[Rfam]
RNA: Trans-activation response element (TAR)
Organism: Lentivirus humimdef1
RNA sequence: AGGUCUCUCUUGUUAGACCAGAUCGAGCCUAGGAGCUCUCUAGCUAGCAGGGAAACCCAC
Numbered sequence: 001a002g003g004u005c006u007c008u009c010u011u012g013u014u015a016g017a018c019c020a021g022a023u024c025g026a027g028c029c030u031a032g033g034a035g036c037u038c039u040c041u042a043g044c045u046a047g048c049a050g051g052g053a054a055a056c057c058c059a060c
Base pairs, nucleotide, nucleotide: 002057003056004055006054008052009051010050011049012048013047014046015045016044018043020041021040022039025038026037027036028035